[Rfam]
RNA: Bacterial RNase P class A
Organism: Anaerolineales bacterium
RNA sequence: CAGGCUGGUCGGGCAGUCGCGGUCCUGCGUUGCCGGGAUCGAGGAAAGUCCGCACUCCAUAGAGCACGGCGUCGGUUAGCAACCGGGGCGGGGAAGUCCGUCACUCGUUGACGGAAAGAUCGCCGAAGGGCGUGAACCUGCCGGAAAAGGGCCACAGAAACAAACAGCUGUUUCCGCCCAAUGGGCGAAACAGUGAUGGUGAAAAGGUGGUGUAAGAGACCACCGGCAUUUGCCGUAAUGCAGAUGGCCAGGUAACCCCCGCCGGGAGCAAGGCCAAGCAGGGGCGAAAUCGUCUGUGGACGAUGGGAGACUGCUCGUCUCCGCACGUGCUCCCUUCAACCGUGGAGGGAGCCAGCCCCGGGUAGGCUGCACCGAGCGGCGCGGCGACGCGCCGCCCAGAGAGAUGACUGCACAAGCGCGAAAGCGCCGGACAGAAUGCGGCUUAUAGACCAGCCUGAGUU
Numbered sequence: 001c002a003g004g005c006u007g008g009u010c011g012g013g014c015a016g017u018c019g020c021g022g023u024c025c026u027g028c029g030u031u032g033c034c035g036g037g038a039u040c041g042a043g044g045a046a047a048g049u050c051c052g053c054a055c056u057c058c059a060u061a062g063a064g065c066a067c068g069g070c071g072u073c074g075g076u077u078a079g080c081a082a083c084c085g086g087g088g089c090g091g092g093g094a095a096g097u098c099c100g101u102c103a104c105u106c107g108u109u110g111a112c113g114g115a116a117a118g119a120u121c122g123c124c125g126a127a128g129g130g131c132g133u134g135a136a137c138c139u140g141c142c143g144g145a146a147a148a149g150g151g152c153c154a155c156a157g158a159a160a161c162a163a164a165c166a167g168c169u170g171u172u173u174c175c176g177c178c179c180a181a182u183g184g185g186c187g188a189a190a191c192a193g194u195g196a197u198g199g200u201g202a203a204a205a206g207g208u209g210g211u212g213u214a215a216g217a218g219a220c221c222a223c224c225g226g227c228a229u230u231u232g233c234c235g236u237a238a239u240g241c242a243g244a245u246g247g248c249c250a251g252g253u254a255a256c257c258c259c260c261g262c263c264g265g266g267a268g269c270a271a272g273g274c275c276a277a278g279c280a281g282g283g284g285c286g287a288a289a290u291c292g293u294c295u296g297u298g299g300a301c302g303a304u305g306g307g308a309g310a311c312u313g314c315u316c317g318u319c320u321c322c323g324c325a326c327g328u329g330c331u332c333c334c335u336u337c338a339a340c341c342g343u344g345g346a347g348g349g350a351g352c353c354a355g356c357c358c359c360g361g362g363u364a365g366g367c368u369g370c371a372c373c374g375a376g377c378g379g380c381g382c383g384g385c386g387a388c389g390c391g392c393c394g395c396c397c398a399g400a401g402a403g404a405u406g407a408c409u410g411c412a413c414a415a416g417c418g419c420g421a422a423a424g425c426g427c428c429g430g431a432c433a434g435a436a437u438g439c440g441g442c443u444u445a446u447a448g449a450c451c452a453g454c455c456u457g458a459g460u461u
Base pairs, nucleotide, nucleotide: 001457002456003455004454005453006452007451008450009449010448011446013411014410015409016408017407018406020041021040022039023038024037025036026035027034046444047443048442050441051440052439053438054437055268056267057266058265067264068263069262070261071260072086073085074084075083076082088141089140090139091138144259149257150256151253152252153251165198166197167194168193169192170191171190172189173188174187206224207223208222209221210220211219226248227246228245229244230243231242232241233240272368273367274366275365281359282358283357284356285355376395377394378393379392380391381390382389383388